[Rfam]
Nucleotides: 223
Stems, first nucleotide, its partner, number of pairs: 007103002015098004028085002031082003038075003049072006106129007131142003162180007188220004199216003203212001
Number, partner (000 for none) and nucleotide at each position: 001000a002000a003000a004000u005000a006000a007103g008102u009000u010000g011000c012000g013000a014000u015098a016097a017096g018095g019000a020000c021000a022000u023000g024000a025000g026000u027000a028085u029084u030000u031082u032081g033080c034000u035000a036000c037000g038075g039074u040073u041000u042000u043000c044000a045000g046000a047000g048000a049072g050071g051070g052069a053068a054067g055000u056000a057000u058000u059000g060000c061000u062000g063000u064000g065000a066000g067054c068053u069052u070051c071050c072049u073040a074039a075038c076000a077000c078000g079000g080033g081032c082031a083000u084029g085028a086000u087000a088000u089000u090000u091000a092000c093000c094000a095018c096017c097016u098015u099000u100000g101000a102008a103007c104000u105000c106129c107128g108127a109126u110125c111124g112123u113000g114000a115000a116000c117000g118000a119000a120000g121000u122000a123112a124111u125110g126109a127108u128107c129106g130000g131142c132141g133140g134000a135000a136000u137000g138000a139000u140133c141132c142131g143000u144000u145000a146000c147000a148000a149000u150000g151000a152000a153000u154000c155000c156000a157000a158000a159000g160000u161000c162180a163179a164178u165177a166176u167175a168174c169000g170000u171000u172000u173000c174168g175167u176166a177165u178164g179163u180162u181000g182000a183000a184000a185000a186000u187000g188220a189219g190218g191217g192000u193000g194000g195000a196000a197000c198000c199216a200215c201214g202000u203212g204000u205000a206000u207000a208000a209000a210000a211000a212203c213000u214201c215200g216199u217191c218190c219189c220188u221000u222000u223000c